nhaA-I RNA: a 57-nucleotide RNA from Chelatococcus reniformis.
[Rfam]
RNA sequence: GGGUGCUUUUCCCUCAUCACGAGGAGAGCAGGUUCAGGCGUUGGUCGGGCCGCCGCG
Number, nucleotide and partner (000 for none) at each position: 001g000002g000003g000004u000005g029006c028007u027008u026009u000010u025011c024012c023013c000014u000015c000016a000017u000018c000019a000020c000021g000022a000023g012024g011025a010026g008027a007028g006029c005030a000031g000032g000033u000034u000035c000036a000037g000038g000039c057040g056041u055042u000043g054044g053045u052046c000047g000048g000049g000050c000051c000052g045053c044054c043055g041056c040057g039
The base pairs follow the family's consensus structure, which is taken from published work.
Rfam classes the family as a riboswitch.
Acidobacteria, Alphaproteobacteria, Betaproteobacteria and Gammaproteobacteria, Verrucomicrobia, cand. division NC10.